[Rfam]
RNA sequence: AUAUCUUUUAACAUAUUAAGAAGUCGAAUUGACAGUGGAGAAAGAAGUAUGAAGUCGAAAGCCAUCAUUGUCUAUAAUCAAAACCCAUAAACCCGUACCAUGAUUCUUUCUUCAUUGCCAAUUCGACUUCCUGAUAUGUUAAAAGGAAU
Numbered sequence: 001a002u003a004u005c006u007u008u009u010a011a012c013a014u015a016u017u018a019a020g021a022a023g024u025c026g027a028a029u030u031g032a033c034a035g036u037g038g039a040g041a042a043a044g045a046a047g048u049a050u051g052a053a054g055u056c057g058a059a060a061g062c063c064a065u066c067a068u069u070g071u072c073u074a075u076a077a078u079c080a081a082a083a084c085c086c087a088u089a090a091a092c093c094c095g096u097a098c099c100a101u102g103a104u105u106c107u108u109u110c111u112u113c114a115u116u117g118c119c120a121a122u123u124c125g126a127c128u129u130c131c132u133g134a135u136a137u138g139u140u141a142a143a144a145g146g147a148a149u
Stems, first nucleotide, its partner, number of pairs: 004146015020130012033117014048102004056095002